[Rfam]
RNA sequence: AUAAUGAUACUUCCGCUUAGCCACAGCAAGUAAGCUUUGUGCUGAACACGCAAUGGGAGCGGCCUGGCGAGAACCGCGAGGAGGAUUAACCUAUGG
Numbered sequence: 001a002u003a004a005u006g007a008u009a010c011u012u013c014c015g016c017u018u019a020g021c022c023a024c025a026g027c028a029a030g031u032a033a034g035c036u037u038u039g040u041g042c043u044g045a046a047c048a049c050g051c052a053a054u055g056g057g058a059g060c061g062g063c064c065u066g067g068c069g070a071g072a073a074c075c076g077c078g079a080g081g082a083g084g085a086u087u088a089a090c091c092u093a094u095g096g
Stems, first nucleotide, its partner, number of pairs: 012093001013062006063081003067077003082092003
Shown here is a 96-nucleotide sequence from Butyrivibrio sp. XB500-5, a member of the family "pemK RNA". A search with the family's covariance model found it, with a score of 55 bits. NCBI's taxonomy places the organism under Bacteria, Bacillati, Bacillota, Clostridia, Butyrivibrio.